[Rfam]
RNA: Small nucleolar RNA snoR8a
Organism: Triticum urartu
RNA sequence: UUUGGUGCGGUGAUUAUAAAACAUUCCUCGUACUGACGGGAAAUCCCUGUUACCGACAUCUAUACAUCCAUAUAAUCUUUCUUUUUGUGAAAAUACAUCCAUAGAUUCUGAGCAUCA
Dot-bracket structure: ..((.((.........................................................................................................)).))